[Rfam]
A member of the RNA family "Mitochondrial DNA control region secondary structure A" from Piliocolobus tephrosceles, 107 nucleotides long.
A search with the family's covariance model found it, with a score of 41 bits.
Rfam classes the family as an antisense RNA.
The family's consensus secondary structure is taken from published work.

Nucleotides: 107
Stems, first nucleotide, its partner, number of pairs: 005098003009094001011092002016086003021035003036061002039057003066080005
Number, partner (000 for none) and nucleotide at each position: 001000u002000a003000c004000u005098u006097u007096u008000u009094u010000c011092g012091g013000c014000a015000c016086a017085c018084a019000c020000u021035u022034g023033a024000a025000c026000c027000a028000c029000u030000a031000u032000g033023u034022c035021a036061g037060c038000a039057u040056u041055a042000a043000u044000g045000a046000a047000c048000u049000a050000a051000u052000a053000c054000c055041u056040a057039a058000g059000u060037g061036c062000u063000u064000u065000u066080a067079u068078g069077u070076a071000c072000u073000u074000g075000g076070u077069g078068c079067a080066u081000u082000a083000c084018u085017g086016u087000u088000a089000a090000u091012c092011c093000c094009a095000u096007g097006a098005a099000u100000a101000a102000u103000a104000u105000a106000u107000u